[Rfam]
RNA sequence: AGGCUAAUGAUGAUAAUUUAAAAUAGUCUUAGCGGAUUUCAGUGAGAUAUUAUCUCUAUGAUCUUAUUGUUACACACACUGGGGCCU
Number, nucleotide and partner (000 for none) at each position: 001a087002g086003g085004c084005u083006a000007a000008u000009g000010a000011u000012g000013a000014u000015a000016a000017u000018u000019u000020a000021a000022a000023a000024u000025a000026g000027u000028c000029u000030u000031a000032g000033c000034g000035g000036a000037u000038u000039u000040c000041a000042g000043u000044g000045a000046g000047a000048u000049a000050u000051u000052a000053u000054c000055u000056c000057u000058a000059u000060g000061a000062u000063c000064u000065u000066a000067u000068u000069g000070u000071u000072a000073c000074a000075c000076a000077c000078a000079c000080u000081g000082g000083g005084g004085c003086c002087u001
Shown here is an 87-nucleotide sequence from Gossypium mustelinum, a member of the family "Small nucleolar RNA R11/Z151". The literature on the family includes a 2001 paper in J Mol Biol by Barneche et al., "Identification of 66 box C/D snoRNAs in Arabidopsis thaliana: extensive gene duplications generated multiple isoforms predicting new ribosomal RNA 2'-O-methylation sites". Rfam links the family to the GO terms nucleolus and RNA processing. Rfam 15.1 lists 802 matches to the family in 218 species. The organism belongs to Gossypium, within Eukaryota.